[Rfam]
RNA sequence: AAUAGGGUUAUGAUAAUUUAUUCCUAAACCUUCAAAGGCGAAAUAAGUUGGAUGCCUGUUAGU
Numbered sequence: 001a002a003u004a005g006g007g008u009u010a011u012g013a014u015a016a017u018u019u020a021u022u023c024c025u026a027a028a029c030c031u032u033c034a035a036a037g038g039c040g041a042a043a044u045a046a047g048u049u050g051g052a053u054g055c056c057u058g059u060u061a062g063u
Stems, first nucleotide, its partner, number of pairs: 001063001003061003015049008024040001030037002
Rfam assigns this 63-nucleotide RNA sequence from Stegodyphus mimosarum to the family "Selenocysteine insertion sequence 1". Pairs were carried over by alignment from the consensus structure, which is taken from published work. The incorporation of selenocysteine into a protein sequence is directed by an in-frame UGA codon (usually a stop codon) within the coding region of the mRNA. Selenoprotein mRNAs contain a conserved secondary structure in the 3' UTR that is required for the distinction of UGA stop from UGA selenocysteine. The selenocysteine insertion sequence (SECIS) is around 60 nt in length and adopts a hairpin structure which is sufficiently well-defined and conserved to act as a computational screen for selenoprotein genes.